[Rfam]
RNA sequence: GCAAAUCUGAAGAGGCAGAGUAGUAAGCUUUUAUGGCAGUUCAGAAAGUUGGCGGCGGUUGCGAGCCAAUUGGCAUGAUAGCUGAACUCGCUGCGGAGGAGUGACUGUGAAUUGCAAGUAGCGGUCGACGCCAGCCAGCGUUACAGGCAAUGAGUGGAUGACAAUUGUCAUCAAACAGGGUGGUACCGCGAGAAUCUCGUCCCUGGC
Numbered sequence: 001g002c003a004a005a006u007c008u009g010a011a012g013a014g015g016c017a018g019a020g021u022a023g024u025a026a027g028c029u030u031u032u033a034u035g036g037c038a039g040u041u042c043a044g045a046a047a048g049u050u051g052g053c054g055g056c057g058g059u060u061g062c063g064a065g066c067c068a069a070u071u072g073g074c075a076u077g078a079u080a081g082c083u084g085a086a087c088u089c090g091c092u093g094c095g096g097a098g099g100a101g102u103g104a105c106u107g108u109g110a111a112u113u114g115c116a117a118g119u120a121g122c123g124g125u126c127g128a129c130g131c132c133a134g135c136c137a138g139c140g141u142u143a144c145a146g147g148c149a150a151u152g153a154g155u156g157g158a159u160g161a162c163a164a165u166u167g168u169c170a171u172c173a174a175a176c177a178g179g180g181u182g183g184u185a186c187c188g189c190g191a192g193a194a195u196c197u198c199g200u201c202c203c204u205g206g207c
Base pairs, nucleotide, nucleotide: 007099008098015094016093017092018091026083027082028081029080031078037073039071048070049069050068051067052066053065102127103126104125105124106123107122108121129140130139131138157172158171159170160169161168162167177204178203179202180201188200189199190198191197192196
Shown here is a 207-nucleotide RNA sequence from Sporomusa acidovorans, a member of the family "T-box leader". It is annotated as a cis-regulatory leader. For this family Rfam cites "Interaction between the acceptor end of tRNA and the T box stimulates antitermination in the Bacillus subtilis tyrS gene: a new role for the discriminator base" (Grundy et al., J Bacteriol, 1994). Rfam's curators write: Uncharged tRNA acts as the effector for transcription antitermination of genes in the T-box leader family. T-boxes are found upstream of many aminoacyl-tRNA synthetase genes and some amino acid biosynthetic genes usually in Gram-positive bacteria. The anticodon of a specific tRNA base pairs to a specifier sequence within the T-box motif, and the NCCA acceptor tail of the tRNA base pairs to a conserved bulge in the T-box antiterminator hairpin. Taxonomically the source falls in Sporomusa acidovorans (Bacteria, Bacillati, Bacillota, Selenomonadales).